[Rfam]
RNA sequence: AUAAAUGCCUUGAAGGGGAAGAGUAUAACAAGAAACGUCUUCAGAGAGGAGAAUCAUUAGCUGGGAGAUUCUCUAGAUAGUUAUGUUAGAAGGUAGCCCUGGAGCAUCUUUUCUGAACGGAAUAGUUCUCAUUAGGAAAAGACGGAUUUGUCCGUUAUCAAGUUAAGAGUAUAAGCAAAUUCCUGGAUUUGUUUGUAAAUAAAGGUGGUACCGCGAUGUCCCUCGUCCUUUUU
Numbered sequence: 001a002u003a004a005a006u007g008c009c010u011u012g013a014a015g016g017g018g019a020a021g022a023g024u025a026u027a028a029c030a031a032g033a034a035a036c037g038u039c040u041u042c043a044g045a046g047a048g049g050a051g052a053a054u055c056a057u058u059a060g061c062u063g064g065g066a067g068a069u070u071c072u073c074u075a076g077a078u079a080g081u082u083a084u085g086u087u088a089g090a091a092g093g094u095a096g097c098c099c100u101g102g103a104g105c106a107u108c109u110u111u112u113c114u115g116a117a118c119g120g121a122a123u124a125g126u127u128c129u130c131a132u133u134a135g136g137a138a139a140a141g142a143c144g145g146a147u148u149u150g151u152c153c154g155u156u157a158u159c160a161a162g163u164u165a166a167g168a169g170u171a172u173a174a175g176c177a178a179a180u181u182c183c184u185g186g187a188u189u190u191g192u193u194u195g196u197a198a199a200u201a202a203a204g205g206u207g208g209u210a211c212c213g214c215g216a217u218g219u220c221c222c223u224c225g226u227c228c229u230u231u232u233u
Stems, first nucleotide, its partner, number of pairs: 007105002015100004026088005040076002050072006108141007143154003170197011202230004213226004

Rfam assigns this 233-nucleotide RNA sequence from Bacillus anthracis to the family "T-box leader".
The family has 48 seed sequences and 19,395 matches in Rfam 15.1.
NCBI's taxonomy places the organism under Bacteria, Bacillota, Caryophanales, Bacillus, Bacillus anthracis.